[Rfam]
RNA: Alphaproteobacteria transfer-messenger RNA
RNA sequence: CGGUUUGCAUCCGCCCGCGCGCUCACCUAUAUAGGACAUGUCCUUCGGGACUAUGGACAUAAACGCGCUCGUAAUAAGCGGAUCGGACCCGGGGGCGGUACCCGGCGGCUCCACCAACAUCUUUCGUUUGAAGAUCAUGGGGCCGAAAUAGGAUCGACGAACGUCUAAAGGGGUUAGCUUUGUCUCGGCUGUCUGCCACCGUUACCGGCGAAAACAGUACAAUUGCAAACGACAAUCGUGCUCCGGUUGCAGUUGCUGCGUAAGCAGUAGCAAGACCGAAAUCUAAGCCCUUGCGCCUAGCCGCGUAAGGCGGGGUUCGCAGGUACCUGGCAACAGAAACCUGCAUU
Numbered sequence: 001c002g003g004u005u006u007g008c009a010u011c012c013g014c015c016c017g018c019g020c021g022c023u024c025a026c027c028u029a030u031a032u033a034g035g036a037c038a039u040g041u042c043c044u045u046c047g048g049g050a051c052u053a054u055g056g057a058c059a060u061a062a063a064c065g066c067g068c069u070c071g072u073a074a075u076a077a078g079c080g081g082a083u084c085g086g087a088c089c090c091g092g093g094g095g096c097g098g099u100a101c102c103c104g105g106c107g108g109c110u111c112c113a114c115c116a117a118c119a120u121c122u123u124u125c126g127u128u129u130g131a132a133g134a135u136c137a138u139g140g141g142g143c144c145g146a147a148a149u150a151g152g153a154u155c156g157a158c159g160a161a162c163g164u165c166u167a168a169a170g171g172g173g174u175u176a177g178c179u180u181u182g183u184c185u186c187g188g189c190u191g192u193c194u195g196c197c198a199c200c201g202u203u204a205c206c207g208g209c210g211a212a213a214a215c216a217g218u219a220c221a222a223u224u225g226c227a228a229a230c231g232a233c234a235a236u237c238g239u240g241c242u243c244c245g246g247u248u249g250c251a252g253u254u255g256c257u258g259c260g261u262a263a264g265c266a267g268u269a270g271c272a273a274g275a276c277c278g279a280a281a282u283c284u285a286a287g288c289c290c291u292u293g294c295g296c297c298u299a300g301c302c303g304c305g306u307a308a309g310g311c312g313g314g315g316u317u318c319g320c321a322g323g324u325a326c327c328u329g330g331c332a333a334c335a336g337a338a339a340c341c342u343g344c345a346u347u
Base pairs, nucleotide, nucleotide: 040051041050042049043048055185056184057183058182059181065178066177067174068173069172070171079163080162083160084159085158089105090104091103092102093101106145107144108143109142110141111140112139186201187200188199192211193210195209196208197207313328314327315326316325319344320343321342322341323340324339